[Rfam]
RNA sequence: CGAAUUCAAGCAAUCAAGCAUUCAAGCGCUCUUUUA
Numbered sequence: 001c002g003a004a005u006u007c008a009a010g011c012a013a014u015c016a017a018g019c020a021u022u023c024a025a026g027c028g029c030u031c032u033u034u035u036a
Base pairs, nucleotide, nucleotide: 002023003022004021005020006017010035012033013032
RNA: 5'-leader pseudoknot of TEV/CVMV
Organism: Potyvirus capsivenamaculae